The family of this 63-nucleotide sequence from Saccharolobus solfataricus is "Sulfolobus sRNA133". On this family, see Tang et al., Mol Microbiol 2005: "Identification of novel non-coding RNAs as potential antisense regulators in the archaeon Sulfolobus solfataricus". Pairs were carried over by alignment from the consensus structure. It scores 56 bits against the family's covariance model. Lineage of the source: Archaea > Thermoproteati > Thermoproteota > Sulfolobales > Saccharolobus solfataricus. This RNA has structural homologues in 3 archaeon Sulfolobus genomes: tokodaii, acidocalarius and solfotaricus. It shows extensive compensatory base changes, possibly consistent with a functional role.
[Rfam]
RNA sequence: AAGGUACCUGAUGAAACUCCUCAUGUCCUUGAAGGGAGUUAGUCCCGUAGACGGCAUGGGGAG
Numbered sequence: 001a002a003g004g005u006a007c008c009u010g011a012u013g014a015a016a017c018u019c020c021u022c023a024u025g026u027c028c029u030u031g032a033a034g035g036g037a038g039u040u041a042g043u044c045c046c047g048u049a050g051a052c053g054g055c056a057u058g059g060g061g062a063g
Stems, first nucleotide, its partner, number of pairs: 017061004024056004029051002034046004